[Rfam]
Ruegeria cis2 sRNA: a 153-nucleotide RNA. Pairs were carried over by alignment from the consensus structure, which was predicted with RNAfold. For this family Rfam cites "Experimental Identification of Small Non-Coding RNAs in the Model Marine Bacterium Ruegeria pomeroyi DSS-3" (Rivers et al., Front Microbiol, 2016). Rfam links the family to the GO term regulation of gene expression. By type it is a small RNA.
RNA sequence: UUCGAGUUGUAGGGCACGUAGUUGAGGAAGACGAAGCCGCGGGUCUGGUCGAUGAUGUGGAACAGGGGGUUCCAGUCGAACAUCAUCAGCAUCGAGGCGGGCAGCGUAUUGGCCAGGAACAUCUUGCCGCUGGCGAUCAUGUUGACCCGCCCG
Number, nucleotide and partner (000 for none) at each position: 001u000002u034003c033004g032005a000006g000007u029008u028009g000010u026011a000012g000013g023014g022015c000016a000017c000018g000019u000020a000021g000022u014023u013024g000025a000026g010027g000028a008029a007030g000031a000032c004033g003034a002035a000036g056037c000038c054039g053040c051041g050042g049043g000044u000045c000046u000047g000048g000049u042050c041051g040052a000053u039054g038055a000056u036057g000058u000059g000060g000061a000062a000063c153064a000065g151066g150067g148068g000069g081070u080071u079072c078073c000074a000075g000076u000077c000078g072079a071080a070081c069082a000083u000084c000085a000086u145087c144088a143089g142090c141091a140092u139093c000094g000095a000096g000097g000098c132099g130100g000101g128102c126103a125104g124105c000106g122107u121108a000109u118110u117111g000112g000113c000114c000115a000116g000117g110118a109119a000120c000121a107122u106123c000124u104125u103126g102127c000128c101129g000130c099131u000132g098133g000134c000135g000136a000137u000138c000139a092140u091141g090142u089143u088144g087145a086146c000147c000148c067149g000150c066151c065152c000153g063